A member of the RNA family "Actino-pnp RNA" from Nocardioides marmoriginsengisoli, 78 nucleotides long. The organism belongs to Nocardioides, within Bacteria. It scores 52 bits against the family's covariance model.
[Rfam]
RNA sequence: GCCGGCCUCCGGUAGUGGCUUCCGGGGUACCGCCCAGAAUCAUCGGCGACACCCCGUGGGCCUCGAUCGAAGACCGGC
Number, nucleotide and partner (000 for none) at each position: 001g078002c077003c076004g075005g074006c000007c072008u000009c000010c069011g068012g067013u066014a000015g000016u000017g062018g061019c060020u059021u058022c000023c056024g055025g054026g053027g052028u051029a000030c000031c000032g000033c000034c000035c000036a000037g000038a000039a000040u000041c000042a000043u000044c000045g000046g000047c000048g000049a000050c000051a028052c027053c026054c025055c024056g023057u000058g021059g020060g019061c018062c017063u000064c000065g000066a013067u012068c011069g010070a000071a000072g007073a000074c005075c004076g003077g002078c001